[Rfam]
Nucleotides: 164
Stems, first nucleotide, its partner, number of pairs: 005160006011150002013094001015146002020140003025136008038112005044073005053064004079103004085097003114124003
Number, partner (000 for none) and nucleotide at each position: 001000u002000g003000u004000u005160u006159c007158u008157u009156u010155u011150g012149u013094u014000a015146g016145g017000c018000g019000a020140g021139g022138c023000u024000c025136c026135u027134a028133u029132a030131c031130a032129g033000a034000g035000a036000u037000g038112g039111c040110u041109g042108c043000u044073g045072c046071c047070c048069g049000g050000a051000a052000a053064c054063a055062u056061c057000g058000a059000a060000a061056g062055a063054u064053g065000c066000c067000a068000a069048u070047g071046g072045g073044u074000u075000a076000a077000c078000a079103g080102g081101u082100a083000c084000u085097a086096u087095c088000g089000a090000a091000u092000u093000a094013a095087g096086g097085u098000u099000u100082u101081a102080c103079u104000u105000a106000a107000c108042g109041c110040a111039g112038u113000u114124g115123g116122g117000c118000a119000u120000a121000g122116c123115c124114c125000u126000a127000u128000a129032c130031u131030g132029u133028a134027u135026a136025g137000u138022g139021c140020c141000a142000a143000a144000a145016c146015u147000c148000a149012a150011c151000g152000a153000a154000u155010a156009g157008a158007g159006g160005a161000g162000c163000c164000a